[Rfam]
RNA sequence: GGGGGGUGUGAUCCCAUGCUCCCUGGGGGGGUGUGACCCCGCGCUUCCUGGGGGGUGUGACCCCAUGCUCCCU
Dot-bracket structure: (((((.........((((.((((((((((..((((....)))).)))))))))).))))........))))).
RNA: mir-3689 microRNA precursor family
Organism: Macaca fascicularis